[Rfam]
RNA sequence: AUUAACCAAACGCUGAAUUCCCGUUACGGGAAGCGGGGGAACCACUUUUUGGGGUGAAUCCUUUUCAGGUAGGGCGACUCCUUCCGCCCGAACCCGUCAGCUAACCUCGUAAGCGUCGAAGGGGGAGCAA
Numbered sequence: 001a002u003u004a005a006c007c008a009a010a011c012g013c014u015g016a017a018u019u020c021c022c023g024u025u026a027c028g029g030g031a032a033g034c035g036g037g038g039g040a041a042c043c044a045c046u047u048u049u050u051g052g053g054g055u056g057a058a059u060c061c062u063u064u065u066c067a068g069g070u071a072g073g074g075c076g077a078c079u080c081c082u083u084c085c086g087c088c089c090g091a092a093c094c095c096g097u098c099a100g101c102u103a104a105c106c107u108c109g110u111a112a113g114c115g116u117c118g119a120a121g122g123g124g125g126a127g128c129a130a
Stems, first nucleotide, its partner, number of pairs: 011115004018032003033110006043051002052095003060069003072089004
RNA: c-di-AMP riboswitch aptamer (ydaO/yuaA leader)